[Rfam]
RNA sequence: ACCGCAGACCGCCUUAUCGUCGUUCCGAUGAAUAAUCGGGAGGGAGGAAAGUCCGGACACCAUAGAGCAGCAUAGCGGGUAACGCCCGUCCGUUUCGUCUUUUGGGACGAGAUGAGGACAAGUGCAACAGAAAGUAUGUACAGGUAAUGCUGUAGUGAAACCAGGUAAACUCUAUGCGGUGAAAUGCCAAGUAUAUCAGCAGCUUCCGGUUCGCCGGAAUAAGGGCGGCUCGUCCGAUGCUGAAGGGUAGGCAGAUUGAUCUUGUUGGCAACAACUAGACUAGAUAAAUGAUAAGGGUCAACUUCGGUUGAUACAGAAUCCGGCUUACAGGUCUGCUUUUUUU
Numbered sequence: 001a002c003c004g005c006a007g008a009c010c011g012c013c014u015u016a017u018c019g020u021c022g023u024u025c026c027g028a029u030g031a032a033u034a035a036u037c038g039g040g041a042g043g044g045a046g047g048a049a050a051g052u053c054c055g056g057a058c059a060c061c062a063u064a065g066a067g068c069a070g071c072a073u074a075g076c077g078g079g080u081a082a083c084g085c086c087c088g089u090c091c092g093u094u095u096c097g098u099c100u101u102u103u104g105g106g107a108c109g110a111g112a113u114g115a116g117g118a119c120a121a122g123u124g125c126a127a128c129a130g131a132a133a134g135u136a137u138g139u140a141c142a143g144g145u146a147a148u149g150c151u152g153u154a155g156u157g158a159a160a161c162c163a164g165g166u167a168a169a170c171u172c173u174a175u176g177c178g179g180u181g182a183a184a185u186g187c188c189a190a191g192u193a194u195a196u197c198a199g200c201a202g203c204u205u206c207c208g209g210u211u212c213g214c215c216g217g218a219a220u221a222a223g224g225g226c227g228g229c230u231c232g233u234c235c236g237a238u239g240c241u242g243a244a245g246g247g248u249a250g251g252c253a254g255a256u257u258g259a260u261c262u263u264g265u266u267g268g269c270a271a272c273a274a275c276u277a278g279a280c281u282a283g284a285u286a287a288a289u290g291a292u293a294a295g296g297g298u299c300a301a302c303u304u305c306g307g308u309u310g311a312u313a314c315a316g317a318a319u320c321c322g323g324c325u326u327a328c329a330g331g332u333c334u335g336c337u338u339u340u341u342u343u
Stems, first nucleotide, its partner, number of pairs: 001339001004336007011328001012296007020044002023041006049326003053323005058181004065231004070177005075089005090116001091114010117172002122170002124166002139154005185253004196243005223235004260279003264275004
Bacterial RNase P class A: a 343-nucleotide RNA sequence from Flavobacterium enshiense. Rfam links the family to the GO terms tRNA processing, dimeric ribonuclease P complex and ribonuclease P activity. Rfam describes the family as follows. Ribonuclease P (RNase P) is a ubiquitous endoribonuclease, found in archaea, bacteria and eukarya as well as chloroplasts and mitochondria. Its best characterised activity is the generation of mature 5'-ends of tRNAs by cleaving the 5'-leader elements of precursor-tRNAs. Cellular RNase Ps are ribonucleoproteins. RNA from bacterial RNase Ps retains its catalytic activity in the absence of the protein subunit, i.e. it is a ribozyme. By type it is a ribozyme.